[Rfam]
RNA sequence: UUGUUGCUGAAGCAGUUCCCUCUCUCUCUGCAGUAGGGAGUAUGGACCAUUAAUGGGCAUGCUAUAAUAAACCACAUGGAGUUAUCAGGGCCGCCAGUCUCUCAAGUACAGGCUGAGCCGGUAGUAUAAUGCUCCAACACUU
Numbered sequence: 001u002u003g004u005u006g007c008u009g010a011a012g013c014a015g016u017u018c019c020c021u022c023u024c025u026c027u028c029u030g031c032a033g034u035a036g037g038g039a040g041u042a043u044g045g046a047c048c049a050u051u052a053a054u055g056g057g058c059a060u061g062c063u064a065u066a067a068u069a070a071a072c073c074a075c076a077u078g079g080a081g082u083u084a085u086c087a088g089g090g091c092c093g094c095c096a097g098u099c100u101c102u103c104a105a106g107u108a109c110a111g112g113c114u115g116a117g118c119c120g121g122u123a124g125u126a127u128a129a130u131g132c133u134c135c136a137a138c139a140c141u142u
Base pairs, nucleotide, nucleotide: 003062004061005059006058007057015041016040017039018038019037020036021035022033078135079134080133081132090122091121094117095115096114097113098112099111100110

The record is a 142-nucleotide RNA from Megalops atlanticus, which matches "Small nucleolar RNA U109" in Rfam. The family's consensus secondary structure was predicted with WAR. Rfam links the family to the GO terms nucleolus and RNA processing. The match comes from Rfam's covariance-model search (52 bits). A reference for the family is Gu et al. (2005), "A novel experimental approach for systematic identification of box H/ACA snoRNAs from eukaryotes", Nucleic Acids Res.